[Rfam]
RNA sequence: AACUUAUCAAGAGUGGCGGAGGGACUGGCCCUAUGAAGCCCAGCAACCUAUAUAAAAAUGUGGUGCUAAUUCCAGGUAGAUAAGGA
Numbered sequence: 001a002a003c004u005u006a007u008c009a010a011g012a013g014u015g016g017c018g019g020a021g022g023g024a025c026u027g028g029c030c031c032u033a034u035g036a037a038g039c040c041c042a043g044c045a046a047c048c049u050a051u052a053u054a055a056a057a058a059u060g061u062g063g064u065g066c067u068a069a070u071u072c073c074a075g076g077u078a079g080a081u082a083a084g085g086a
Stems, first nucleotide, its partner, number of pairs: 003084006013041001015040003021031003025075004042067004047063002049060003071078001